The record is a 78-nucleotide RNA sequence from Bombyx mori, which matches "mir-1 microRNA precursor family" in Rfam. Rfam describes the family as follows. This family represents the microRNA (miRNA) mir-1 family. miRNAs are transcribed as ~70nt precursors (modelled here) and subsequently processed by the Dicer enzyme to give a ~22nt product. On this family, see Lee and Ambros, Science 2001: "An extensive class of small RNAs in Caenorhabditis elegans". The family has 137 seed sequences and 4,474 matches in Rfam 15.1. It scores 47 bits against the family's covariance model. Lineage of the source: Eukaryota > Opisthokonta > Hexapoda > Neolepidoptera > Bombyx.
[Rfam]
RNA sequence: AAAGUAAGUUUAAACCUCAUUAUCUCCAUAUUAACUUACCAUAGUUAAUAUGGAGGUAAUGAGGUUUAAACUUAAGCU
Numbered sequence: 001a002a003a004g005u006a007a008g009u010u011u012a013a014a015c016c017u018c019a020u021u022a023u024c025u026c027c028a029u030a031u032u033a034a035c036u037u038a039c040c041a042u043a044g045u046u047a048a049u050a051u052g053g054a055g056g057u058a059a060u061g062a063g064g065u066u067u068a069a070a071c072u073u074a075a076g077c078u
Stems, first nucleotide, its partner, number of pairs: 007072024